[Rfam]
About this RNA
This 210-nucleotide RNA from Carlito syrichta belongs to the Rfam family "Small nucleolar RNA U3". The literature on the family includes a 1997 paper in Nucleic Acids Res by Zwieb, "The uRNA database".
RNA sequence: AAGACUGUACUUUCAGGGAUCAUUUCUAUAGUUCGUUACUAGAGAAGUUUCUCUGAUCAUGUAGAGCACCAGAAACCACAAGGAGGAGGCACAGCAUUGUCUCCUGAGCAUGAAGCCGGCUCUUGGUGUUGCUUUGCUGCAGCUGCCAUUUGCCAUUGAUGAUCAUUCUUUUCUUCCUCUGAGAGAGUAAGAGGAUUCAGUCUGAGUGGU
Dot-bracket structure: .((..((.(((...((((.....))))..))).))...))........((...(......)..)).........(((((..............(.((.....((...(.........(((...(((((((((......))))).))))...)))...........)..(((((((.(...).))))).))..)))).).......)))))

Gene Ontology terms of the family: RNA processing and nucleolus. Pairs were carried over by alignment from the consensus structure, which is taken from published work. About the family: Small nucleolar RNAs (snoRNAs) are involved in the processing and modification of rRNA in the nucleolus. There are two main classes of snoRNAs: the box C/D class, and the box H/ACA class. U3 snoRNA is a member of the box C/D class. Indeed, the box C/D element is a subset of the six short sequence elements found in all U3 snoRNAs, namely boxes A, A', B, C, C', and D. The U3 snoRNA secondary structure is characterised by a small 5' domain (with boxes A and A'), and a larger 3' domain (with boxes B, C, C', and D), the two domains being linked by a single-stranded hinge. The organism belongs to Carlito, within Eukaryota.